Bacterial RNase P class A: a 344-nucleotide RNA from Flaviflexus ciconiae. Lineage of the source: Bacteria > Bacillati > Actinomycetota > Actinomycetes > Flaviflexus. Its family is annotated with tRNA processing, ribonuclease P activity and dimeric ribonuclease P complex in the Gene Ontology.
RNA sequence: CAAGCUGGCUAGGCGGCCGCGGCACUUUGGUGCCGAGGAACGUCCGGGCUCCACAGAGUACGGUGGUGGGUAACGCCCACCCGGGGUGACCCGCGGGCCAGUGCAACAGAAAGUAAACCGCCGCAAGGUAAGGGUGAAAGGGUGAGGUAAGAGCUCACCGCGGACUGGGUGACCAGGACGGCACGGUAAACCCCACCGGGAGCAAGACCAGACAGUUGGCUGAAUGCUACUCGCACACGAGCUUUGCUCGGGCCGACGGGUGGGUUGCUAGAGAUACGUGGUAACACGCGUCCGAGAUGGAUGGUCGCCCUCGACAAAACCCGGCGUAUCGGCCAGCUUGUCCC
Numbered sequence: 001c002a003a004g005c006u007g008g009c010u011a012g013g014c015g016g017c018c019g020c021g022g023c024a025c026u027u028u029g030g031u032g033c034c035g036a037g038g039a040a041c042g043u044c045c046g047g048g049c050u051c052c053a054c055a056g057a058g059u060a061c062g063g064u065g066g067u068g069g070g071u072a073a074c075g076c077c078c079a080c081c082c083g084g085g086g087u088g089a090c091c092c093g094c095g096g097g098c099c100a101g102u103g104c105a106a107c108a109g110a111a112a113g114u115a116a117a118c119c120g121c122c123g124c125a126a127g128g129u130a131a132g133g134g135u136g137a138a139a140g141g142g143u144g145a146g147g148u149a150a151g152a153g154c155u156c157a158c159c160g161c162g163g164a165c166u167g168g169g170u171g172a173c174c175a176g177g178a179c180g181g182c183a184c185g186g187u188a189a190a191c192c193c194c195a196c197c198g199g200g201a202g203c204a205a206g207a208c209c210a211g212a213c214a215g216u217u218g219g220c221u222g223a224a225u226g227c228u229a230c231u232c233g234c235a236c237a238c239g240a241g242c243u244u245u246g247c248u249c250g251g252g253c254c255g256a257c258g259g260g261u262g263g264g265u266u267g268c269u270a271g272a273g274a275u276a277c278g279u280g281g282u283a284a285c286a287c288g289c290g291u292c293c294g295a296g297a298u299g300g301a302u303g304g305u306c307g308c309c310c311u312c313g314a315c316a317a318a319a320c321c322c323g324g325c326g327u328a329u330c331g332g333c334c335a336g337c338u339u340g341u342c343c344c
Base pairs, nucleotide, nucleotide: 001340002339003338004337005336006335007334008333009332010331011329012309013308014307015306016305017304018303020035021034022033023032024031025030040327041326042325044324045323046322047321048320049202050201051200052199056245057244061198062197063196064195065194066080067079068078069077070076081095082093083092084091085090096193097192101191102190103187104186118133119132120129121128122127141159142158143157144156145155146154160182161180162179165176166175167174168173206266207265208264209263215257216256217255218254219253220252238250239249240248241247242246273292274291275290277288278287279286280285